Annotation
The record is a 280-nucleotide part of an RNA from Sulfolobales archaeon HS-7, which matches "Archaeal large subunit ribosomal RNA" in Rfam. The organism belongs to Sulfolobales, within Archaea. The base pairs follow the family's consensus structure, which is taken from published work.
RNA sequence: GGUCGCCUGAAGGAAAGGUACCCCAAGUACGAGAGGAACAGGGUACCGGGGCCUCUAGUUUACCGGUUAUCCGGUCGGGUAGUGCCGGGCAGCCACGCCUCUAGGGGUAACUGCUGAAAGCAUCUAAGCAGGAACCCCGCCCUGAAAAGAGGCGACCGUGCAGGUCCGGGUAACCGGACUUGCAGAAGGGCUCCUCUAGACGAGGGGGUUGAUGGGGUAGGGGUGUAAGCUUCGAGGGUUUCCCGAGAAGUUCAGCCCGCUACUCCCAAUAGCCCAAGCC
Number, nucleotide and partner (000 for none) at each position: 001g157002g156003u155004c154005g153006c152007c151008u150009g000010a000011a143012g142013g141014a000015a000016a000017g047018g046019u045020a044021c043022c042023c041024c000025a000026a000027g000028u000029a000030c000031g000032a000033g000034a000035g000036g000037a000038a000039c000040a000041g023042g022043g021044u020045a019046c018047c017048g101049g100050g099051g098052c097053c000054u000055c000056u095057a000058g093059u000060u000061u000062a000063c088064c087065g086066g085067u084068u081069a080070u079071c078072c077073g000074g000075u000076c000077g072078g071079g070080u069081a068082g000083u000084g067085c066086c065087g064088g063089g000090c000091a000092g000093c058094c000095a056096c000097g052098c051099c050100u049101c048102u000103a000104g138105g137106g136107g000108u000109a000110a000111c131112u130113g129114c128115u127116g000117a000118a000119a000120g000121c000122a000123u000124c000125u000126a000127a115128g114129c113130a112131g111132g000133a000134a000135c000136c106137c105138c104139g000140c000141c013142c012143u011144g000145a000146a000147a000148a000149g000150a008151g007152g006153c005154g004155a003156c002157c001158g000159u000160g000161c000162a000163g000164g000165u000166c000167c000168g000169g000170g000171u000172a000173a000174c000175c000176g000177g000178a000179c000180u000181u000182g000183c000184a000185g000186a000187a000188g275189g274190g273191c272192u208193c207194c206195u205196c204197u000198a000199g000200a000201c000202g000203a000204g196205g195206g194207g193208g192209u000210u000211g000212a000213u268214g267215g266216g264217g263218u262219a261220g260221g258222g257223g256224u000225g000226u000227a000228a000229g251230c250231u249232u248233c247234g000235a000236g244237g000238g000239u000240u000241u000242c000243c000244c236245g000246a000247g233248a232249a231250g230251u229252u000253c000254a000255g000256c223257c222258c221259g000260c220261u219262a218263c217264u216265c000266c215267c214268a213269a000270u000271a000272g191273c190274c189275c188276a000277a000278g000279c000280c000